[Rfam]
RNA sequence: UUGUACCGGCAGACUGGUACGACCAGCUCCUGUGAACCUCCCCAGGUCCGGAAGGAAGCAAGGAUAAGUGGUUGUAGCGGUGCGAUAUUCAGUUUGCCUUUU
Dot-bracket structure: .......((((((((.(((((((........................................................)).)).)))..))))))))....
Numbered sequence: 001u002u003g004u005a006c007c008g009g010c011a012g013a014c015u016g017g018u019a020c021g022a023c024c025a026g027c028u029c030c031u032g033u034g035a036a037c038c039u040c041c042c043c044a045g046g047u048c049c050g051g052a053a054g055g056a057a058g059c060a061a062g063g064a065u066a067a068g069u070g071g072u073u074g075u076a077g078c079g080g081u082g083c084g085a086u087a088u089u090c091a092g093u094u095u096g097c098c099u100u101u102u
Stems, first nucleotide, its partner, number of pairs: 008098008017088003020084002022081002
A member of the RNA family "Bacteroidales small SRP" from Cytophaga hutchinsonii, 102 nucleotides long.
NCBI's taxonomy places the organism under Bacteria, Bacteroidota, Cytophagia, Cytophaga, Cytophaga hutchinsonii.
Gene Ontology terms of the family: signal recognition particle, plasma membrane targeting and SRP-dependent cotranslational protein targeting to membrane, signal sequence recognition.
On this family, see Ryan et al., Nat Commun 2020: "A high-resolution transcriptome map identifies small RNA regulation of metabolism in the gut microbe Bacteroides thetaiotaomicron".
The base pairs follow the family's consensus structure, which is taken from published work.